[Rfam]
RNA: ASpks TB sRNA
Organism: Nocardia wallacei
RNA sequence: UUUCACCGAUCCCAGCCACAGCGGUUCGCCGUCGCGGUCGCGCUGACCGUAGGUCGCCAGCACCGCCUGCGCCUC
Numbered sequence: 001u002u003u004c005a006c007c008g009a010u011c012c013c014a015g016c017c018a019c020a021g022c023g024g025u026u027c028g029c030c031g032u033c034g035c036g037g038u039c040g041c042g043c044u045g046a047c048c049g050u051a052g053g054u055c056g057c058c059a060g061c062a063c064c065g066c067c068u069g070c071g072c073c074u075c
Stems, first nucleotide, its partner, number of pairs: 014026004033071003039065002043060003047056001049054001